This 389-nucleotide part of an RNA from Herdmania momus belongs to the Rfam family "Eukaryotic large subunit ribosomal RNA".
Gene Ontology terms of the family: ribosome and structural constituent of ribosome.
A reference for the family is Yusupov et al. (2001), "Crystal structure of the ribosome at 5.5 A resolution", Science.
Rfam's curators put it in the seed alignment.
Taxonomically the source falls in Herdmania (Eukaryota, Metazoa, Eumetazoa, Bilateria).
The family's consensus secondary structure is taken from published work.
RNA sequence: CGAGAGGGCCCGUCAGUCGCCCGGCCGCUUUCAGUUGAGGCGGCGGCGGUGCGCGGCACCGGUCCGCCGCGGACGCUCACGCGCCGGCUCCGGGUCGGCCAACGCGCACCGCCUCAGCGCACUAGCACCGGGCGAGAGCACGACCGCUCCGGCCCGAAGACCGGCCGCUCGCCAAGGUAGCUCCGCCCGGCAGUGUUACAGGACGGGGCGUACGCCGCGUCGCGACGUGAAAGACUGUGCGCGUCCAUUGGGAGUCGUUGUCGUCGGCCGGCGGGCUGCGCGCACUGUUCUCAGUGCACGCUGACGCUUCGUGCCGCACGAUGCGACCUCCUCGCGACGCCGGGGUCUGUGGUCACGUCGGCCACCCUCUCGACCGUCUUGAAACACGG
Number, nucleotide and partner (000 for none) at each position: 001c372002g371003a370004g369005a368006g367007g366008g365009c361010c360011c000012g358013u000014c000015a000016g000017u135018c134019g133020c132021c131022c130023g129024g128025c000026c000027g000028c000029u000030u000031u000032c000033a000034g000035u000036u000037g000038a000039g000040g000041c000042g000043g000044c000045g000046g000047c000048g000049g000050u000051g000052c000053g000054c000055g000056g000057c000058a000059c000060c000061g000062g000063u000064c000065c000066g000067c000068c000069g000070c000071g000072g000073a000074c000075g000076c000077u000078c000079a000080c000081g000082c000083g000084c000085c000086g000087g000088c000089u000090c000091c000092g000093g000094g000095u000096c000097g000098g000099c000100c000101a000102a000103c000104g000105c000106g000107c000108a000109c000110c000111g000112c000113c000114u000115c000116a000117g000118c000119g000120c000121a000122c000123u000124a000125g000126c000127a000128c024129c023130g022131g021132g020133c019134g018135a017136g000137a000138g000139c351140a350141c349142g347143a346144c345145c344146g000147c000148u000149c000150c000151g000152g000153c000154c000155c000156g000157a000158a000159g000160a000161c000162c000163g000164g000165c000166c000167g000168c000169u000170c000171g000172c000173c000174a000175a000176g000177g000178u000179a000180g000181c000182u000183c000184c000185g000186c000187c000188c000189g000190g000191c000192a000193g000194u000195g000196u000197u000198a000199c000200a000201g000202g000203a000204c000205g000206g000207g000208g000209c000210g000211u000212a000213c000214g000215c000216c000217g000218c000219g000220u000221c000222g000223c000224g000225a000226c000227g000228u000229g000230a000231a000232a000233g000234a000235c000236u000237g000238u000239g000240c000241g000242c000243g000244u000245c000246c000247a000248u000249u000250g000251g000252g000253a000254g000255u000256c000257g000258u000259u000260g000261u000262c000263g000264u000265c000266g000267g000268c000269c000270g000271g000272c000273g000274g000275g000276c000277u000278g000279c000280g000281c000282g000283c000284a000285c000286u000287g000288u000289u000290c000291u000292c000293a000294g000295u000296g000297c000298a000299c000300g000301c000302u000303g000304a000305c000306g000307c000308u000309u000310c000311g000312u000313g000314c000315c000316g000317c000318a000319c000320g000321a000322u000323g000324c000325g000326a000327c000328c000329u000330c000331c000332u000333c000334g000335c000336g000337a000338c000339g000340c000341c000342g000343g000344g145345g144346u143347c142348u000349g141350u140351g139352g000353u000354c000355a000356c000357g000358u012359c000360g010361g009362c000363c000364a000365c008366c007367c006368u005369c004370u003371c002372g001373a000374c389375c388376g387377u386378c000379u000380u000381g000382a000383a000384a000385c000386a377387c376388g375389g374